[Rfam]
RNA sequence: CGGCUGUGACCAGAUCCAACGCCUCAGAAUUUUAACUGGCCCGUUGUUGUCAAACCUCCGUCGACAAUUCUGCUUACCGAACUUCUCACAUUC
Numbered sequence: 001c002g003g004c005u006g007u008g009a010c011c012a013g014a015u016c017c018a019a020c021g022c023c024u025c026a027g028a029a030u031u032u033u034a035a036c037u038g039g040c041c042c043g044u045u046g047u048u049g050u051c052a053a054a055c056c057u058c059c060g061u062c063g064a065c066a067a068u069u070c071u072g073c074u075u076a077c078c079g080a081a082c083u084u085c086u087c088a089c090a091u092u093c
Stems, first nucleotide, its partner, number of pairs: 026086004031081002038074003043069001045067001046065004
Notes: Shown here is a 93-nucleotide RNA from Eucalyptus grandis, a member of the family "Small nucleolar RNA snoR109". The source organism's lineage runs through Eukaryota, Embryophyta, Gunneridae, Myrtaceae and Eucalyptus. Rfam 15.1 lists 680 matches to the family in 220 species. Rfam links the family to the GO terms nucleolus and RNA processing.